Overview
A member of the RNA family "Lysine riboswitch aptamer" from Peptostreptococcus russellii, 174 nucleotides long. Rfam 15.1 lists 3,224 matches to the family in 1,923 species.
RNA sequence: AUAAAAGAUAGAGGAGCGAGGAUUAUCAGUAACUGUUUUCAUGGAUUAAAGCGUCCACAGUGAAAGGAGUUUUCGCCGAAGCGUAUAAUUAGCUUUAUAAUUAUAUUUGCUGGGGGUGCGUAGAAUAUGCGUAUCACUGUCACAAGCGUAAUCUUGUGUUGGGCUAUCAUGAGU
Numbered sequence: 001a002u003a004a005a006a007g008a009u010a011g012a013g014g015a016g017c018g019a020g021g022a023u024u025a026u027c028a029g030u031a032a033c034u035g036u037u038u039u040c041a042u043g044g045a046u047u048a049a050a051g052c053g054u055c056c057a058c059a060g061u062g063a064a065a066g067g068a069g070u071u072u073u074c075g076c077c078g079a080a081g082c083g084u085a086u087a088a089u090u091a092g093c094u095u096u097a098u099a100a101u102u103a104u105a106u107u108u109g110c111u112g113g114g115g116g117u118g119c120g121u122a123g124a125a126u127a128u129g130c131g132u133a134u135c136a137c138u139g140u141c142a143c144a145a146g147c148g149u150a151a152u153c154u155u156g157u158g159u160u161g162g163g164c165u166a167u168c169a170u171g172a173g174u
Base pairs, nucleotide, nucleotide: 007168008167009166010165011164016076017075018074019073020072021071022070023069024068032061033060034059035058036057080111081110082109083108084105085104086103087102088101089100090099091098112138113137115135116134117133118132119131120130121129122128141158142157143156144155145154146153
NCBI's taxonomy places the organism under Bacteria, Bacillati, Peptostreptococcales, Peptostreptococcaceae, Peptostreptococcus. Rfam's curators write: Riboswitches are metabolite binding domains within certain messenger RNAs that serve as precision sensors for their corresponding targets. Allosteric rearrangement of mRNA structure is mediated by ligand binding, and this results in modulation of gene expression. This family includes riboswitches that sense lysine in a number of genes involved in lysine metabolism, including lysC.